[Rfam]
RNA sequence: GCACCGAAAGUGAGUAUUGGAGGAAAGCAUACUGGAAAUCCGUGUCAAAGUGUUGAUGUCUUCAGUUUGUUUUUCUCCAAUAUCUCACUUUGGGUCG
Number, nucleotide and partner (000 for none) at each position: 001g000002c000003a000004c094005c093006g000007a091008a090009a000010g000011u087012g086013a085014g084015u000016a081017u080018u079019g078020g077021a076022g000023g074024a073025a072026a071027g070028c069029a068030u000031a000032c065033u064034g063035g062036a000037a000038a000039u000040c000041c000042g000043u000044g000045u000046c000047a000048a000049a000050g000051u000052g000053u000054u000055g000056a000057u000058g000059u000060c000061u000062u035063c034064a033065g032066u000067u000068u029069g028070u027071u026072u025073u024074u023075c000076u021077c020078c019079a018080a017081u016082a000083u000084c014085u013086c012087a011088c000089u000090u008091u007092g000093g005094g004095u000096c000097g000

The family of this 97-nucleotide RNA from Triticum urartu is "MIR2275 microRNA precursor family". Rfam links the family to the GO terms RISC complex and miRNA-mediated post-transcriptional gene silencing.